Notes: The record is a 134-nucleotide sequence from Prolemur simus, which matches "Small nucleolar RNA SNORA64/SNORA10 family" in Rfam.
[Rfam]
RNA sequence: UCUCUCUCCGCUCUGCAAAAUUACAUUCAGCUUCACCCGUGUGACUUUCAUGAUGAGGAGAAAGAGAAAAGAUUUCCUCGGGACCUCAGAUUGCCCUUAUGGUGGUUUCUCUUUCCUUGAGGGGUACAACAGAU
Number, nucleotide and partner (000 for none) at each position: 001u000002c066003u065004c064005u063006c000007u061008c060009c000010g000011c058012u057013c000014u055015g054016c000017a000018a000019a046020a000021u044022u043023a042024c041025a040026u039027u000028c000029a000030g000031c000032u000033u000034c000035a000036c000037c000038c000039g026040u025041g024042u023043g022044a021045c000046u019047u000048u000049c000050a000051u000052g000053a000054u015055g014056a000057g012058g011059a000060g008061a007062a000063a005064g004065a003066g002067a000068a000069a000070a000071g000072a000073u000074u124075u123076c122077c121078u120079c000080g118081g117082g116083a000084c000085c000086u000087c000088a112089g111090a110091u000092u000093g107094c000095c105096c104097u000098u000099a000100u000101g000102g000103u000104g096105g095106u000107u093108u000109c000110u090111c089112u088113u000114u000115c000116c082117u081118u080119g000120a078121g077122g076123g075124g074125u000126a000127c000128a000129a000130c000131a000132g000133a000134u000
It scores 78 bits against the family's covariance model.
The family has 9 seed sequences and 703 matches in Rfam 15.1.
Rfam's curators write: This family belongs to the H/ACA class of small nucleolar RNAs (snoRNAs) which act as guides in the the modification of uridines to pseudouridines. This family includes the human snoRNAs U64 and ACA10 and mouse MBI-29.
The literature on the family includes a 1999 paper in EMBO J by Narayanan et al., "Nucleolar localization signals of box H/ACA small nucleolar RNAs".